A member of the RNA family "Alphaproteobacteria transfer-messenger RNA" from Brevundimonas sp. SH203, 368 nucleotides long.
[Rfam]
RNA sequence: GCGCUUGGAAAGCGCCGCCCGCCGCCCUAUAUUCGAACCGUCCGGUUUCGGCCGGACUAUGGCGAUAAACGCGCUUGUAAUAAGCGGACCGGACCCGGGUGCGAUUCCCGGCGGCUCCACCAAUCUUCUCCCCGCGUUAUCGGCGGAGGCAUCAUGGGGCCGACUAGCAUCGACGGACGUGUAAAGAGGAUUGCUUUCGCUCGUCCUGGCCCACCGUAUCGGGCCAUUUUCUAACUGCGAACGAUAACUUCGCUGGAGAAGUCGCUCUCGCCGCGUAAUGCGGUUCGGGUGAUUUCGAACCUUAAGUCCUAGGGGUUCAGAUCCUUGGGCGGGGCCUGUCGGGAGCCUGGCAACAGAAUCCCGGCGCU
Numbered sequence: 001g002c003g004c005u006u007g008g009a010a011a012g013c014g015c016c017g018c019c020c021g022c023c024g025c026c027c028u029a030u031a032u033u034c035g036a037a038c039c040g041u042c043c044g045g046u047u048u049c050g051g052c053c054g055g056a057c058u059a060u061g062g063c064g065a066u067a068a069a070c071g072c073g074c075u076u077g078u079a080a081u082a083a084g085c086g087g088a089c090c091g092g093a094c095c096c097g098g099g100u101g102c103g104a105u106u107c108c109c110g111g112c113g114g115c116u117c118c119a120c121c122a123a124u125c126u127u128c129u130c131c132c133c134g135c136g137u138u139a140u141c142g143g144c145g146g147a148g149g150c151a152u153c154a155u156g157g158g159g160c161c162g163a164c165u166a167g168c169a170u171c172g173a174c175g176g177a178c179g180u181g182u183a184a185a186g187a188g189g190a191u192u193g194c195u196u197u198c199g200c201u202c203g204u205c206c207u208g209g210c211c212c213a214c215c216g217u218a219u220c221g222g223g224c225c226a227u228u229u230u231c232u233a234a235c236u237g238c239g240a241a242c243g244a245u246a247a248c249u250u251c252g253c254u255g256g257a258g259a260a261g262u263c264g265c266u267c268u269c270g271c272c273g274c275g276u277a278a279u280g281c282g283g284u285u286c287g288g289g290u291g292a293u294u295u296c297g298a299a300c301c302u303u304a305a306g307u308c309c310u311a312g313g314g315g316u317u318c319a320g321a322u323c324c325u326u327g328g329g330c331g332g333g334g335c336c337u338g339u340c341g342g343g344a345g346c347c348u349g350g351c352a353a354c355a356g357a358a359u360c361c362c363g364g365c366g367c368u
Base pairs, nucleotide, nucleotide: 040057041056042055043054044053045052046051061201062200063199064198065197071194072193073192074189075188076187085179086178089176090175091174095111096110097109098108099107112162113161114160115159116158117157118156202216203215207226208225209224210223211222212221332348333347334346335345338365339364340363341362342361343360
The literature on the family includes a 1997 paper in RNA by Felden et al., "Probing the structure of the Escherichia coli 10Sa RNA (tmRNA)".